Description
A member of the RNA family "Small nucleolar RNA SNORA47" from Gymnodraco acuticeps, 137 nucleotides long. A reference for the family is Huttenhofer et al. (2001), "RNomics: an experimental approach that identifies 201 candidates for novel, small, non-messenger RNAs in mouse", EMBO J.
RNA sequence: UGGAGGACUGAGAAGGUUGAGCAGCCUGCAGUGCUGCUAUAACUGGUUAUAGCCUCCUAAAGUAACUCACUAACCACUCAAUUCAGUGGCUCUGUCAUAUACGCAGAGCUGAUGUGUAGUGUGUUUGUGAACAAAAC
Numbered sequence: 001u002g003g004a005g006g007a008c009u010g011a012g013a014a015g016g017u018u019g020a021g022c023a024g025c026c027u028g029c030a031g032u033g034c035u036g037c038u039a040u041a042a043c044u045g046g047u048u049a050u051a052g053c054c055u056c057c058u059a060a061a062g063u064a065a066c067u068c069a070c071u072a073a074c075c076a077c078u079c080a081a082u083u084c085a086g087u088g089g090c091u092c093u094g095u096c097a098u099a100u101a102c103g104c105a106g107a108g109c110u111g112a113u114g115u116g117u118a119g120u121g122u123g124u125u126u127g128u129g130a131a132c133a134a135a136a137c
Base pairs, nucleotide, nucleotide: 002057003056004055005054006053015044016043017042018041020038021037022036023035024034025033077129079127086122087121088120096116097115098114099113100112102111103110
The family's consensus secondary structure was predicted with WAR.
Its family is annotated with nucleolus and RNA processing in the Gene Ontology.
The family has 20 seed sequences and 733 matches in Rfam 15.1.